[Rfam]
RNA: radC RNA
RNA sequence: UAUUUUCACCCGUGAGCUGCUGACGUCGUCAGCAACCAUGCCCAAGCAGUCACGAUCUGUGAGACUGCGACACGGCUUACCGUGUUGAUCAAACCCAAGAUCGCUAAGCUUCCGGUAGCGCGAUCGGUCAAUCGGCAACGAUUGAUGGAAGC
Numbered sequence: 001u002a003u004u005u006u007c008a009c010c011c012g013u014g015a016g017c018u019g020c021u022g023a024c025g026u027c028g029u030c031a032g033c034a035a036c037c038a039u040g041c042c043c044a045a046g047c048a049g050u051c052a053c054g055a056u057c058u059g060u061g062a063g064a065c066u067g068c069g070a071c072a073c074g075g076c077u078u079a080c081c082g083u084g085u086u087g088a089u090c091a092a093a094c095c096c097a098a099g100a101u102c103g104c105u106a107a108g109c110u111u112c113c114g115g116u117a118g119c120g121c122g123a124u125c126g127g128u129c130a131a132u133c134g135g136c137a138a139c140g141a142u143u144g145a146u147g148g149a150a151g152c
Base pairs, nucleotide, nucleotide: 011040012039013038014037019033020032021031022030023029024028046068047067048066049065050064051063054090055089056088057087069086070085071084072083073082074081075080120152121151127146128145129144130143131142132141133140134139